[Rfam]
RNA sequence: AUGUUAUCAAGAAAGGCGGAGGGAUUAGACCCUGUGAAGCCUUAGCAACCCUUUCACCCGAAAGAAGGUGCUACUUUCUACUGAAUUUUCUUUUACAGAAGAUUUAUGAAAGAUAACGA
Numbered sequence: 001a002u003g004u005u006a007u008c009a010a011g012a013a014a015g016g017c018g019g020a021g022g023g024a025u026u027a028g029a030c031c032c033u034g035u036g037a038a039g040c041c042u043u044a045g046c047a048a049c050c051c052u053u054u055c056a057c058c059c060g061a062a063a064g065a066a067g068g069u070g071c072u073a074c075u076u077u078c079u080a081c082u083g084a085a086u087u088u089u090c091u092u093u094u095a096c097a098g099a100a101g102a103u104u105u106a107u108g109a110a111a112g113a114u115a116a117c118g119a
Stems, first nucleotide, its partner, number of pairs: 002118007013043005021032003026080004044072004049068002051064004076111001081108001084105002

A member of the RNA family "SAM riboswitch aptamer (S box leader)" from Constantimarinum furrinae, 119 nucleotides long. A search with the family's covariance model found it, with a score of 73 bits.